This 394-nucleotide sequence from Chitinophaga agri belongs to the Rfam family "Bacterial RNase P class A". Lineage of the source: Bacteria > Bacteroidota > Chitinophagia > Chitinophagales > Chitinophaga. From the family's description: Ribonuclease P (RNase P) is a ubiquitous endoribonuclease, found in archaea, bacteria and eukarya as well as chloroplasts and mitochondria. By type it is a ribozyme.
RNA sequence: ACUACGAACCGUGCUGUCGCUUCAACCGAAAGGUAGAUGAGGAAAGUCCGGACAACAUAGAGUAACGCACCACCUAACGGGUGGGGCUGCUCUUUUCUCUGCAAAGGGCGAAGAGCGGUACAGAUAGUGCCACAGAAAAUGACCGCCUGCCAGUUGCGCAAGCAGCAGCAGGUAAGGGUGAAAAUGUGGGGUAAGAGCCCACGUUCUGGUAUGGCAACAUAUUGGGAGGGUAAACCUUGCGUGUUGAAAUGCCAUGUAUACGGUCGCUUAGGGCUACUCGUCCGAUGACCGAGGGUAGGCAGAUACAGGUGUCGUGUGAACGGCAUCGAAGAUAAAUGAUAGCAGCUCCUUUUAACAGGGAGAACAGAAUCCGGCUUAUAGGUUUGUAGUUUUU
Number, nucleotide and partner (000 for none) at each position: 001a390002c389003u388004a387005c386006g385007a384008a383009c382010c381011g379012u344013g343014c342015u341016g340017u339018c338019g000020c039021u000022u037023c036024a000025a034026c033027c032028g000029a000030a000031a000032g027033g026034u025035a000036g023037a022038u000039g020040a000041g000042g000043a000044a377045a376046g375047u000048c374049c373050g372051g371052a370053c246054a245055a244056c243057a000058u000059a000060g279061a278062g277063u276064a000065a242066c241067g240068c239069a238070c084071c083072a082073c081074c080075u000076a000077a000078c000079g000080g074081g073082u072083g071084g070085g121086g119087c118088u117089g116090c115091u114092c113093u112094u111095u110096u000097c000098u000099c000100u000101g000102c000103a000104a000105a000106g000107g000108g000109c000110g095111a094112a093113g092114a091115g090116c089117g088118g087119u086120a000121c085122a237123g236124a000125u000126a000127g235128u234129g231130c230131c229132a000133c000134a000135g000136a000137a000138a000139a000140u000141g000142a000143c177144c176145g173146c172147c171148u170149g169150c168151c000152a000153g000154u000155u000156g000157c000158g000159c000160a000161a000162g000163c000164a000165g000166c000167a000168g150169c149170a148171g147172g146173u145174a000175a000176g144177g143178g000179u000180g000181a000182a000183a000184a000185u203186g202187u201188g200189g199190g198191g000192u000193a000194a000195g000196a000197g000198c190199c189200c188201a187202c186203g185204u000205u227206c225207u224208g223209g222210u221211a220212u219213g218214g000215c000216a000217a000218c213219a212220u211221a210222u209223u208224g207225g206226g000227a205228g000229g131230g130231u129232a000233a000234a128235c127236c123237u122238u069239g068240c067241g066242u065243g056244u055245u054246g053247a000248a000249a000250u301251g300252c299253c298254a000255u000256g000257u000258a000259u000260a000261c291262g290263g289264u288265c287266g000267c000268u000269u000270a000271g283272g282273g281274c280275u000276a063277c062278u061279c060280g274281u273282c272283c271284g000285a000286u000287g265288a264289c263290c262291g261292a000293g000294g000295g000296u000297a000298g253299g252300c251301a250302g000303a000304u000305a000306c000307a000308g327309g326310u325311g324312u323313c322314g321315u320316g000317u000318g000319a000320a315321c314322g313323g312324c311325a310326u309327c308328g000329a000330a000331g000332a000333u000334a000335a000336a000337u000338g018339a017340u016341a015342g014343c013344a012345g000346c000347u000348c000349c000350u000351u000352u000353u000354a000355a000356c000357a000358g000359g000360g000361a000362g000363a000364a000365c000366a000367g000368a000369a000370u052371c051372c050373g049374g048375c046376u045377u044378a000379u011380a000381g010382g009383u008384u007385u006386g005387u004388a003389g002390u001391u000392u000393u000394u000